[Rfam]
Annotation:
This 61-nucleotide RNA sequence from Lathyrus oleraceus belongs to the Rfam family "Plastid-psbN 5UTR RNA". The family's consensus secondary structure was predicted with LocARNA. By type it is a cis-regulatory element. The literature on the family includes a 2012 paper in Plant Cell by Zhelyazkova et al., "The primary transcriptome of barley chloroplasts: numerous noncoding RNAs and the dominating role of the plastid-encoded RNA polymerase". NCBI's taxonomy places the organism under Eukaryota, Mesangiospermae, Gunneridae, Fabaceae, Lathyrus.
RNA sequence: UCCCCACCCCAUCAAAGGGGUAGUUCCCCACCCCGAAGCUACUUUACCAUAUUCUGAAUUC
Numbered sequence: 001u002c003c004c005c006a007c008c009c010c011a012u013c014a015a016a017g018g019g020g021u022a023g024u025u026c027c028c029c030a031c032c033c034c035g036a037a038g039c040u041a042c043u044u045u046a047c048c049a050u051a052u053u054c055u056g057a058a059u060u061c
Stems, first nucleotide, its partner, number of pairs: 017045009027035001